[Rfam]
RNA sequence: CUGACAGAAGAGAGUGAGCAUAUGCAACCAAUUGUAUAGAUUGUAUACAUUUGUUGGGAUUCUGCAUGUGCUCACUUCUCUUCUGUCAG
Numbered sequence: 001c002u003g004a005c006a007g008a009a010g011a012g013a014g015u016g017a018g019c020a021u022a023u024g025c026a027a028c029c030a031a032u033u034g035u036a037u038a039g040a041u042u043g044u045a046u047a048c049a050u051u052u053g054u055u056g057g058g059a060u061u062c063u064g065c066a067u068g069u070g071c072u073c074a075c076u077u078c079u080c081u082u083c084u085g086u087c088a089g
Stems, first nucleotide, its partner, number of pairs: 001089012013076009023066003
Annotation
This 89-nucleotide RNA sequence from Helianthus annuus belongs to the Rfam family "mir-156 microRNA precursor family". Rfam links the family to the GO terms RISC complex and miRNA-mediated post-transcriptional gene silencing. NCBI's taxonomy places the organism under Eukaryota, Euphyllophyta, Asterales, Asteroideae, Helianthus. From the family's description: This family represents the plant microRNA (miRNA) precursor mir-156.